[Rfam]
RNA sequence: GCUUGUUUGAUGUCAUAGAUACUGCAUCAGGAACUGAUAGGGUAAUGCUCUAUCGCCGUCAGUUCCUAAUGCACUGCCUUCAGCAUCUACGCC
Numbered sequence: 001g002c003u004u005g006u007u008u009g010a011u012g013u014c015a016u017a018g019a020u021a022c023u024g025c026a027u028c029a030g031g032a033a034c035u036g037a038u039a040g041g042g043u044a045a046u047g048c049u050c051u052a053u054c055g056c057c058g059u060c061a062g063u064u065c066c067u068a069a070u071g072c073a074c075u076g077c078c079u080u081c082a083g084c085a086u087c088u089a090c091g092c093c
Stems, first nucleotide, its partner, number of pairs: 023073005029067009040057002
RNA: mir-217 microRNA precursor family